The family of this 133-nucleotide RNA from Aphelocoma coerulescens is "Small nucleolar RNA SNORA55".
Rfam links the family to the GO terms RNA processing and nucleolus.
Rfam's curators write: ACA55 is a member of the H/ACA class of snoRNA that guide the sites of modification of uridines to pseudouridines.
The family's RNA type in Rfam is H/ACA-box small nucleolar RNA.
Pairs were carried over by alignment from the consensus structure, which was predicted with PFOLD.
NCBI's taxonomy places the organism under Eukaryota, Opisthokonta, Bilateria, Sauria, Aphelocoma.

RNA sequence: GCACCUGCCUCUUUCCUAUUCCUCGCUGUGAAGUGCAGGUCUGGGGGCACUUGGUGCUACAGCACAGCAGUGGAAAUCCAGAUGGGUUCGUUCUCACUGGUUUGGGACUCAUCUCUACACCUCUGCAACACCA
Dot-bracket structure: (((((.......((((((..((...............))..)))))).....))))).........((((.(.......((((((((......(((......))).))))))))......).)))).......